[Rfam]
RNA sequence: GUACCCGUAGCUUUCUCGCAUUCAGUUGCAAGGGGGAGGGGAAUGGGGUCCCCUCCGGUUGCGUGUACAGAAGG
Numbered sequence: 001g002u003a004c005c006c007g008u009a010g011c012u013u014u015c016u017c018g019c020a021u022u023c024a025g026u027u028g029c030a031a032g033g034g035g036g037a038g039g040g041g042a043a044u045g046g047g048g049u050c051c052c053c054u055c056c057g058g059u060u061g062c063g064u065g066u067a068c069a070g071a072a073g074g
Stems, first nucleotide, its partner, number of pairs: 001068004006063002009060004014033002018029003035056008

A member of the RNA family "Corio-PBP RNA", 74 nucleotides long. The family's RNA type in Rfam is small RNA.